[Rfam]
RNA sequence: GACAAACGAUGAAGCGGGAGGUUGCGGCGAUUUAACGUCGGUUUUUCUGUGGAGUGAGUCCGAUUCAUGAAACCGGGCGGCA
Numbered sequence: 001g002a003c004a005a006a007c008g009a010u011g012a013a014g015c016g017g018g019a020g021g022u023u024g025c026g027g028c029g030a031u032u033u034a035a036c037g038u039c040g041g042u043u044u045u046u047c048u049g050u051g052g053a054g055u056g057a058g059u060c061c062g063a064u065u066c067a068u069g070a071a072a073c074c075g076g077g078c079g080g081c082a
Stems, first nucleotide, its partner, number of pairs: 014050003018047004025040005060080003064077003
RNA: S10-Clostridia ribosomal protein leader